Annotation:
The record is a 257-nucleotide RNA from Schizosaccharomyces japonicus, which matches "Fungal signal recognition particle RNA" in Rfam. The literature on the family includes a 2002 paper in Curr Opin Struct Biol by Wild et al., "Towards the structure of the mammalian signal recognition particle". Lineage of the source: Eukaryota > Opisthokonta > Taphrinomycotina > Schizosaccharomycetaceae > Schizosaccharomyces japonicus.

RNA sequence: AAGCUGUAAUGGCUCGGAUGGAGAGACAAUCCCUUUGUCAACUGGUGGGGUGGUGUUAACGGGUUCGAGUCUCGCAGUUGAUCCUCUGAUUCCUCCACACACUCUGGCGGGUAGCCGCCCGGCAGUGGUGAGGAUUAAACACAGGGCCACCGGCGGAGGUUGGCAACAACGCACGUCAACCCUGGGUCAGAGGCAGUGCGACUGCGACAGGAUUCACUCGAGCUGUCCCGGCAGGGAAGGGGGUCUCCACAUCUUUU
Dot-bracket structure: .(((.......))).(((((..(((((...((((((.....(((.(((((((((......((((..((((((.(((((((..((((((((..(((..(((...(.((.((....)).)).)...)))..)))..(...)..(((((.....((((....(((....)))....))))..))))).)))))))).....)))))))....))))))))))..))))))))).)))))).))).)))))..)))))...
Numbered sequence: 001a002a003g004c005u006g007u008a009a010u011g012g013c014u015c016g017g018a019u020g021g022a023g024a025g026a027c028a029a030u031c032c033c034u035u036u037g038u039c040a041a042c043u044g045g046u047g048g049g050g051u052g053g054u055g056u057u058a059a060c061g062g063g064u065u066c067g068a069g070u071c072u073c074g075c076a077g078u079u080g081a082u083c084c085u086c087u088g089a090u091u092c093c094u095c096c097a098c099a100c101a102c103u104c105u106g107g108c109g110g111g112u113a114g115c116c117g118c119c120c121g122g123c124a125g126u127g128g129u130g131a132g133g134a135u136u137a138a139a140c141a142c143a144g145g146g147c148c149a150c151c152g153g154c155g156g157a158g159g160u161u162g163g164c165a166a167c168a169a170c171g172c173a174c175g176u177c178a179a180c181c182c183u184g185g186g187u188c189a190g191a192g193g194c195a196g197u198g199c200g201a202c203u204g205c206g207a208c209a210g211g212a213u214u215c216a217c218u219c220g221a222g223c224u225g226u227c228c229c230g231g232c233a234g235g236g237a238a239g240g241g242g243g244u245c246u247c248c249a250c251a252u253c254u255u256u257u
Stems, first nucleotide, its partner, number of pairs: 002014003016254005023247005031241003034237003042234003046230009061219004067215006074205007083193008093132003098127003104121001106119002109116002135139001142184005152177004160169003